This 50-nucleotide sequence from Meridianimarinicoccus roseus belongs to the Rfam family "Xanthine riboswitch aptamer (NMT1 RNA)". A search with the family's covariance model found it, with a score of 44 bits. NCBI's taxonomy places the organism under Bacteria, Pseudomonadota, Rhodobacterales, Paracoccaceae, Meridianimarinicoccus. The literature on the family includes a 2020 paper in RNA by Yu and Breaker, "A bacterial riboswitch class senses xanthine and uric acid to regulate genes associated with purine oxidation".
RNA sequence: GACCGGAGUAGAAGCAGUCAGGCGCAGCGCGCCAGGUCAUUGCUCCAGCC
Numbered sequence: 001g002a003c004c005g006g007a008g009u010a011g012a013a014g015c016a017g018u019c020a021g022g023c024g025c026a027g028c029g030c031g032c033c034a035g036g037u038c039a040u041u042g043c044u045c046c047a048g049c050c
Stems, first nucleotide, its partner, number of pairs: 005046006015035001019036001021033005